The family of this 203-nucleotide RNA sequence from Acinetobacter gerneri is "Acinetobacter sRNA 11".
[Rfam]
RNA sequence: UUUAGCUAGCUUAUGUAUAGCUAAGUUUGCCGAUAUGAGGCAUAAUGCCCUACAACGUAGCGGUGUAUCAUGAUUGAGAAUUAGCGUGAUUUAUCACAAAUUCGAUUUUCAAUCAUGCGACACUUUAAUCGCUAUCCCAGAUUUAUAAGGGAAUGGGACUCUUCACCGAGGUUGUAAAAUGAGACAAACGAUUUUAGCUGUAU
Numbered sequence: 001u002u003u004a005g006c007u008a009g010c011u012u013a014u015g016u017a018u019a020g021c022u023a024a025g026u027u028u029g030c031c032g033a034u035a036u037g038a039g040g041c042a043u044a045a046u047g048c049c050c051u052a053c054a055a056c057g058u059a060g061c062g063g064u065g066u067a068u069c070a071u072g073a074u075u076g077a078g079a080a081u082u083a084g085c086g087u088g089a090u091u092u093a094u095c096a097c098a099a100a101u102u103c104g105a106u107u108u109u110c111a112a113u114c115a116u117g118c119g120a121c122a123c124u125u126u127a128a129u130c131g132c133u134a135u136c137c138c139a140g141a142u143u144u145a146u147a148a149g150g151g152a153a154u155g156g157g158a159c160u161c162u163u164c165a166c167c168g169a170g171g172u173u174g175u176a177a178a179a180u181g182a183g184a185c186a187a188a189c190g191a192u193u194u195u196a197g198c199u200g201u202a203u
Stems, first nucleotide, its partner, number of pairs: 015203008025189005031183001039049004051176006058134005063123004069117003073113007080101003084097001135158005142152003159170003
Source information:
On this family, see Sharma et al., PLoS One 2014: "Identification of novel regulatory small RNAs in Acinetobacter baumannii".